[Rfam]
RNA sequence: AGGCAGCCCCCUUGCGAAUUAAAAAACUAUGGUAAGGAGGGUGUUGUUCUGCUCGGAAAUUAUUUUCUUUGGCUCUUCAGAUUUGCUGAGAAAUUUCAUUUCUCUGAAGCUGGUCUAGUAAGCUUAAGUACAUU
Numbered sequence: 001a002g003g004c005a006g007c008c009c010c011c012u013u014g015c016g017a018a019u020u021a022a023a024a025a026a027c028u029a030u031g032g033u034a035a036g037g038a039g040g041g042u043g044u045u046g047u048u049c050u051g052c053u054c055g056g057a058a059a060u061u062a063u064u065u066u067c068u069u070u071g072g073c074u075c076u077u078c079a080g081a082u083u084u085g086c087u088g089a090g091a092a093a094u095u096u097c098a099u100u101u102c103u104c105u106g107a108a109g110c111u112g113g114u115c116u117a118g119u120a121a122g123c124u125u126a127a128g129u130a131c132a133u134u
Stems, first nucleotide, its partner, number of pairs: 002045004007041002010037006017030001067128003072123003079116005085110003090102003

The record is a 134-nucleotide RNA sequence from Papaver somniferum, which matches "Small nucleolar RNA snoR77" in Rfam.
On this family, see Marker et al., Curr Biol 2002: "Experimental RNomics: identification of 140 candidates for small non-messenger RNAs in the plant Arabidopsis thaliana".
It scores 106 bits against the family's covariance model.
The organism belongs to Papaver, within Eukaryota.
By type it is an H/ACA-box small nucleolar RNA.
The base pairs follow the family's consensus structure, which was predicted with WAR.
Rfam 15.1 lists 649 matches to the family in 221 species.
Rfam links the family to the GO terms RNA processing and nucleolus.